[Rfam]
The family of this 102-nucleotide RNA from Thermaerobacillus caldiproteolyticus is "Purine riboswitch aptamer".
RNA sequence: AUUUAAUGAAGUACACUCCUUCAUAUAUCCUCGAUAAUAUGGUUCGAGAGUCUCUACCGGGUAACCGUAAAUUACCCGACUAUGAAGGCAGAAUAACUAGAA
Numbered sequence: 001a002u003u004u005a006a007u008g009a010a011g012u013a014c015a016c017u018c019c020u021u022c023a024u025a026u027a028u029c030c031u032c033g034a035u036a037a038u039a040u041g042g043u044u045c046g047a048g049a050g051u052c053u054c055u056a057c058c059g060g061g062u063a064a065c066c067g068u069a070a071a072u073u074a075c076c077c078g079a080c081u082a083u084g085a086a087g088g089c090a091g092a093a094u095a096a097c098u099a100g101a102a
Base pairs, nucleotide, nucleotide: 018088019087020086021085022084023083024082025081030048031047032046033045034044058078059077060076061075062074063073064072
A search with the family's covariance model found it, with a score of 93 bits. Lineage of the source: Bacteria > Bacillota > Caryophanales > Anoxybacillaceae > Thermaerobacillus.